[Rfam]
RNA sequence: GCCAUGGGGUUGAUCGCGAUUACCCCGUGAGGCGCCAGCCCAAAGAUCGCGUCCAUGAUCCCUUAAAAGGGUUGGACGCUGAUG
Numbered sequence: 001g002c003c004a005u006g007g008g009g010u011u012g013a014u015c016g017c018g019a020u021u022a023c024c025c026c027g028u029g030a031g032g033c034g035c036c037a038g039c040c041c042a043a044a045g046a047u048c049g050c051g052u053c054c055a056u057g058a059u060c061c062c063u064u065a066a067a068a069g070g071g072u073u074g075g076a077c078g079c080u081g082a083u084g
Base pairs, nucleotide, nucleotide: 005027006026007025008024009023010022049079050078051077052076053075054074
Shown here is an 84-nucleotide sequence from Methylocella silvestris, a member of the family "chrB-a RNA". The source organism's lineage runs through Bacteria, Pseudomonadati, Beijerinckiaceae, Methylocella and Methylocella silvestris. The base pairs follow the family's consensus structure, which is taken from published work. The family's RNA type in Rfam is cis-regulatory element.